[Rfam]
Overview
Bacterial RNase P class A: a 330-nucleotide RNA from Subdoligranulum sp. CAG:314. It is annotated as a ribozyme. Pairs were carried over by alignment from the consensus structure, which is taken from published work.
RNA sequence: AGAGUCAGCCGGACGGUCGCGGGGAGCAAGCUCCACGAGGAAAGUCCGAGCACCGCAGGGCAGAGCGCCGGCUAAUUACCGGUGAAGGCGACUUCAAGGAAAGUGCAACAGAAAUAUACCGCACGUUUUUGCGUGCAAGGGUGGAAAUGUGAGGUAAGAGCUCACAAACGUCUUGGCGACUUGACGUUCCUGUAAACCCCGCUCGGUGCAAGAAAUGAGAACAAGCGUUUGCCCGACGCCUCGAUAUGAUUCGCUCGAGCGUGCCGGAAACGGUACGCCUAGACAGAUGACCGUCUAAUACAGAACUCGGCUUACAGACUGGCUCGCAAA
Number, nucleotide and partner (000 for none) at each position: 001a000002g325003a324004g323005u322006c321007a320008g319009c000010c317011g315012g295013a294014c293015g292016g291017u290018c289019g000020c037021g036022g000023g034024g033025a032026g031027c000028a000029a000030g000031c026032u025033c024034c023035a000036c021037g020038a000039g000040g000041a000042a313043a312044g311045u000046c310047c309048g308049a307050g306051c208052a207053c206054c205055g000056c000057a000058g234059g233060g232061c231062a000063g204064a203065g202066c201067g200068c082069c081070g080071g079072c000073u000074a000075a000076u000077u000078a000079c071080c070081g069082g068083u097084g095085a094086a093087g092088g000089c000090g000091a000092c087093u086094u085095c084096a000097a083098g199099g198100a000101a000102a000103g197104u196105g193106c192107a191108a000109c000110a000111g000112a000113a000114a000115u000116a000117u000118a000119c140120c139121g136122c135123a134124c133125g132126u131127u000128u000129u000130u000131g126132c125133g124134u123135g122136c121137a000138a000139g120140g119141g000142u000143g000144g000145a000146a000147a000148u166149g165150u164151g163152a162153g161154g000155u000156a000157a000158g000159a000160g000161c153162u152163c151164a150165c149166a148167a188168a187169c186170g185171u184172c183173u000174u000175g180176g000177c000178g000179a000180c175181u000182u000183g172184a171185c170186g169187u168188u167189c000190c000191u107192g106193u105194a000195a000196a104197c103198c099199c098200c067201g066202c065203u064204c063205g054206g053207u052208g051209c000210a000211a000212g252213a251214a245215a000216u243217g242218a241219g240220a000221a000222c000223a000224a000225g239226c238227g237228u236229u235230u000231g061232c060233c059234c058235g229236a228237c227238g226239c225240c219241u218242c217243g216244a000245u214246a000247u000248g000249a000250u000251u213252c212253g000254c000255u000256c000257g000258a000259g278260c277261g276262u275263g274264c273265c272266g271267g000268a000269a000270a000271c266272g265273g264274u263275a262276c261277g260278c259279c000280u000281a000282g000283a000284c000285a000286g000287a000288u000289g018290a017291c016292c015293g014294u013295c012296u000297a000298a000299u000300a000301c000302a000303g000304a000305a000306c050307u049308c048309g047310g046311c044312u043313u042314a000315c011316a000317g010318a000319c008320u007321g006322g005323c004324u003325c002326g000327c000328a000329a000330a000